[Rfam]
RNA sequence: AUGUGCCUGGCUCCCUGUAUGCCAUUUUUAGAGCCUAUUGAAAUUUCGAUGAUCUCUGUAAAUGGCGUAUGAGGAGCCAAGCACGC
Numbered sequence: 001a002u003g004u005g006c007c008u009g010g011c012u013c014c015c016u017g018u019a020u021g022c023c024a025u026u027u028u029u030a031g032a033g034c035c036u037a038u039u040g041a042a043a044u045u046u047c048g049a050u051g052a053u054c055u056c057u058g059u060a061a062a063u064g065g066c067g068u069a070u071g072a073g074g075a076g077c078c079a080a081g082c083a084c085g086c
Stems, first nucleotide, its partner, number of pairs: 002085005008079007016071009027060001029058001
Overview:
The family of this 86-nucleotide sequence from Arachis hypogaea is "mir-160 microRNA precursor family". NCBI's taxonomy places the organism under Eukaryota, Tracheophyta, Spermatophyta, Fabaceae, Arachis. The match comes from Rfam's covariance-model search (68 bits). Pairs were carried over by alignment from the consensus structure, which was predicted with PFOLD. For this family Rfam cites "Prediction of plant microRNA targets" (Rhoades et al., Cell, 2002).